The record is a 155-nucleotide sequence from Streptomyces sp. CC53, which matches "Streptomyces sRNA scr5239" in Rfam. The match comes from Rfam's covariance-model search (135 bits).
[Rfam]
RNA sequence: CCUCCAUCCUCCCCGCACAGGAGGGUGGACCGAGGGACCGGGCUCUCUGCCCUGACUGACCGGUUCCUCACCACGGCCGUGGGACCGCACACCCGACGGCCGGAGCAACUCCGGGCUGCGGUGCCGAAUGCGGGUUGAGGGUCCCGCACCGGCGC
Numbered sequence: 001c002c003u004c005c006a007u008c009c010u011c012c013c014c015g016c017a018c019a020g021g022a023g024g025g026u027g028g029a030c031c032g033a034g035g036g037a038c039c040g041g042g043c044u045c046u047c048u049g050c051c052c053u054g055a056c057u058g059a060c061c062g063g064u065u066c067c068u069c070a071c072c073a074c075g076g077c078c079g080u081g082g083g084a085c086c087g088c089a090c091a092c093c094c095g096a097c098g099g100c101c102g103g104a105g106c107a108a109c110u111c112c113g114g115g116c117u118g119c120g121g122u123g124c125c126g127a128a129u130g131c132g133g134g135u136u137g138a139g140g141g142u143c144c145c146g147c148a149c150c151g152g153c154g155c
Base pairs, nucleotide, nucleotide: 003029004028005027006026008024009023010022011021012020032069033068034067035066036065038063039062040061041060043058044055045054074102075101076100077099078098079097081094082093083092108122109121110120112118113117126149129148130147131146132145133144134143

Notes:
A reference for the family is Vockenhuber et al. (2015), "Identification of metE as a second target of the sRNA scr5239 in Streptomyces coelicolor", PLoS One.